[Rfam]
RNA sequence: AUAAAAAAACCUGCAGAAAUAUUUCUGCAGGGUCCUUCCAUUUCCUAAUUAUUAGGAAUGAAGGCAAAGGGAGAGGAGAAACCGGAGGAAGAACUUAUGGGGAAACGUAAGUCUUCUCCGCGG
Numbered sequence: 001a002u003a004a005a006a007a008a009a010c011c012u013g014c015a016g017a018a019a020u021a022u023u024u025c026u027g028c029a030g031g032g033u034c035c036u037u038c039c040a041u042u043u044c045c046u047a048a049u050u051a052u053u054a055g056g057a058a059u060g061a062a063g064g065c066a067a068a069g070g071g072a073g074a075g076g077a078g079a080a081a082c083c084g085g086a087g088g089a090a091g092a093a094c095u096u097a098u099g100g101g102g103a104a105a106c107g108u109a110a111g112u113c114u115u116c117u118c119c120g121c122g123g
Stems, first nucleotide, its partner, number of pairs: 011030008033071005042058006083120004088116004093112005